[Rfam]
RNA sequence: AACGACCGGCUGGACAUGUAUGUGCUCAGCCCACAAGUGGAGGCUCCGAUCUCCCACCUGGCUGUCCCUGGGGACGGCGGGUCACCCGGUCAGGCGGCCACCAUCGUUCCGUACGGACGAUGGAGUCGCCCGAAAGCGCGCCCCGCGAUCAUCGCGGCGGUGCUCCGGAAGUGUUUGGAGCCCCGCCUGUGAUCGUCCGGGGCAUUUUUU
Dot-bracket structure: ...((((((..((............)).((((.((.((((((........)).)))).))(((((((....)))))))))))...)))))).(((.(...((((((((.......))))))))...)))).........(((((((((....((((((((.(((((..........))))).))))).))).)))..)))))).......